[Rfam]
RNA sequence: AUCGUUGACCUAACCAAAUCGACUCACCAUUAACAGUCAUGAACAACUUUCCUAACUGCGUAACUAACAGCUGUUUUCGUCCUUAAACCAACGAUAACGACUGUUAGCCCAUGUUUUGUAAUGGCUGUUAGGAGCGUUGUUAAGAAGUGUUAACGGUGAAUCGAUUUGCCCUGAUCAACGAU
Numbered sequence: 001a002u003c004g005u006u007g008a009c010c011u012a013a014c015c016a017a018a019u020c021g022a023c024u025c026a027c028c029a030u031u032a033a034c035a036g037u038c039a040u041g042a043a044c045a046a047c048u049u050u051c052c053u054a055a056c057u058g059c060g061u062a063a064c065u066a067a068c069a070g071c072u073g074u075u076u077u078c079g080u081c082c083u084u085a086a087a088c089c090a091a092c093g094a095u096a097a098c099g100a101c102u103g104u105u106a107g108c109c110c111a112u113g114u115u116u117u118g119u120a121a122u123g124g125c126u127g128u129u130a131g132g133a134g135c136g137u138u139g140u141u142a143a144g145a146a147g148u149g150u151u152a153a154c155g156g157u158g159a160a161u162c163g164a165u166u167u168g169c170c171c172u173g174a175u176c177a178a179c180g181a182u
Stems, first nucleotide, its partner, number of pairs: 002181007010173001015168004022161001024159005030153006037146001040143001042141006049134008058125002064107006072099004077094004
About this RNA
MIR5635 microRNA precursor family: a 182-nucleotide RNA from Arabidopsis thaliana. The match comes from Rfam's covariance-model search (149 bits). Pairs were carried over by alignment from the consensus structure, which was predicted with RNAalifold.